[Rfam]
RNA sequence: AAAGUUGUUGUGGUUAAAAAGCUCGUAGUUGAACCUUGGCCUCGGCCGGCCGGUCCGCCUCACCGCGUGCACUGGCUCGGCCGGGGCUUUCCCUCUGUGGAACCCCAUGCCCUUCACUGGGCGUGGCGGGGAAACAGGACUUUUACUUUGAAAAAAUUAGAGUGCUUCAGGCAGGCCUAUGCUCGAAUACAUUAGCAUGGAAUAAUAAAAUAGGACGUGCGGUUCUAUUUUGUUGGUUUCUAGGACCGCCGUAAUGAUUAAUAGGGACAGUCGGGGGCAUCAGUAUUCAAUUGUCAGAGGUGAAAUUCUUGGAUUUAUUGAAGACUAACUACUGCGAAAGCAUUUGCCAAGGAUGUUUUCAUUAAUCAGGAACGAAAGUUAGGGGAUCGAAGACGAUCAGAUACCGUCGUAGUCUUAACCAUAAACUAUGCCGACUAGGGAUCGGACGGUGUUAUUUUUUGACCCGUUCGGCACCUUACGAGAAAUCAAAGUGCUUGGGCUCCAGGGGGAGUAUGGUCGCAAGGCUGAAACUUAAAGAAAU
Dot-bracket structure: ..........(((.....(.(.((...(((.........................................................................................................................................................................................................................................((((((.((...((((..((..((((((.(...(((......)))......).))))))..)).......((....))...))))..)).)).))))...)))...)).)....((((((....(...((((.........))))...).))))))..........(((.((.(((..((((((((.(((.......)))))))))))..)))...((....))...)).....))))))).(((......((((....))))....)))........
RNA: Eukaryotic small subunit ribosomal RNA, nucleotides 601 to 1141
Organism: Emericellopsis atlantica